[Rfam]
RNA sequence: ACUGGGCGUCUUGGCGGGCGCCUGUGAGCCAGCUUCUUGGCAGUAGAUUGGUGUGGAUAGAGUGAGGGGAGGAGUCCCGUGGCGGUCGUGGUGUACGGCGACCGGGCGUCCACGCCAAGCGUUGCGUCGCCAGGGUGCUACUGUCGGAGGGCGGUGGUUCCCGGGCGGUCAAGGAGGGGUGCACGGUUCAGGUCCGAAAGGGAGCAAGCAAAAACCCCCGCGCGACGCAGUGGCCGGAUCGCGUCUGUGAGUGCUCAUGUCGUCGCGGCCUCACCGAUACCUUCAGACCUCCACUCGU
Dot-bracket structure: (((((((((((....))))))))....(((........)))))).((.(((.(....(.(((...((.((((....((((((((..((((..((((......(((((((((..((((.(((((((((((((.(((.(((((((((....))))))))).))).)))).(...)..(((((.....(((....(((....)))....)))....))))).)))))))))..)))).))...)))))))...)))).)))).)))))))))))).)).....))).)...).))).))..
RNA: Metazoan signal recognition particle RNA
Organism: Haemonchus placei